[Rfam]
RNA sequence: UUAAACACCUUGAUAAGAAAAGUAUAUUUAUUCAUAAUUUAUAGAGAGCCUUGUAGCUGAAAAAAGGUAAUUAGGAUAGAUAGAAUAUGGUCUUUGAGUGGAUAUAUUGAGAGUAGGACUUGAGAGGUAUACGUAGGCACCCGUUACAGUGUUACAGUAAAUGAAUACCUUGUUUACUGAAUAAGACAAUGAGUUCAUCGCUCUUGUAAAUGAAGGUGGUACCACGUGAAUAUAUAUUCUCGUCCUUGCG
Numbered sequence: 001u002u003a004a005a006c007a008c009c010u011u012g013a014u015a016a017g018a019a020a021a022g023u024a025u026a027u028u029u030a031u032u033c034a035u036a037a038u039u040u041a042u043a044g045a046g047a048g049c050c051u052u053g054u055a056g057c058u059g060a061a062a063a064a065a066g067g068u069a070a071u072u073a074g075g076a077u078a079g080a081u082a083g084a085a086u087a088u089g090g091u092c093u094u095u096g097a098g099u100g101g102a103u104a105u106a107u108u109g110a111g112a113g114u115a116g117g118a119c120u121u122g123a124g125a126g127g128u129a130u131a132c133g134u135a136g137g138c139a140c141c142c143g144u145u146a147c148a149g150u151g152u153u154a155c156a157g158u159a160a161a162u163g164a165a166u167a168c169c170u171u172g173u174u175u176a177c178u179g180a181a182u183a184a185g186a187c188a189a190u191g192a193g194u195u196c197a198u199c200g201c202u203c204u205u206g207u208a209a210a211u212g213a214a215g216g217u218g219g220u221a222c223c224a225c226g227u228g229a230a231u232a233u234a235u236a237u238u239c240u241c242g243u244c245c246u247u248g249c250g
Stems, first nucleotide, its partner, number of pairs: 007099002015094004025082006037071003048068005102130004107125002132143002189207005213247004224243003228239003
RNA: T-box leader
Organism: Ruoffia halotolerans